This 110-nucleotide sequence from Sandarakinorhabdus fusca belongs to the Rfam family "TPP riboswitch aptamer (THI element)".
The source organism's lineage runs through Bacteria, Pseudomonadota, Alphaproteobacteria, Sphingomonadales and Sandarakinorhabdus.
Rfam links the family to the GO term thiamine pyrophosphate binding.
Rfam describes the family as follows. Vitamin B(1) in its active form thiamin pyrophosphate (TPP) is an essential coenzyme that is synthesised by coupling of pyrimidine and thiazole moieties in bacteria.
On this family, see Miranda-Rios et al., Proc Natl Acad Sci U S A 2001: "A conserved RNA structure (thi box) is involved in regulation of thiamin biosynthetic gene expression in bacteria".
RNA sequence: CCGCAGACCCCGGGGGGCCGGCAUCGACCGGCUGAGAGGCAGCUUCCUCGCUGCGACCCGCUGAACCUGAUCCGGUUGACCCCGGCGUAGGGAGGGCGCGGCCGUCGAAG
Number, nucleotide and partner (000 for none) at each position: 001c000002c000003g000004c000005a000006g000007a000008c096009c095010c094011c060012g059013g058014g057015g000016g000017g032018c031019c030020g029021g028022c000023a000024u000025c000026g000027a000028c021029c020030g019031g018032c017033u000034g000035a000036g000037a000038g000039g054040c053041a052042g051043c050044u000045u000046c000047c000048u000049c000050g043051c042052u041053g040054c039055g000056a000057c014058c013059c012060g011061c000062u000063g000064a000065a000066c091067c090068u089069g088070a000071u000072c085073c084074g083075g082076u000077u000078g000079a000080c000081c000082c075083c074084g073085g072086c000087g000088u069089a068090g067091g066092g000093a000094g010095g009096g008097c000098g000099c000100g000101g000102c000103c000104g000105u000106c000107g000108a000109a000110g000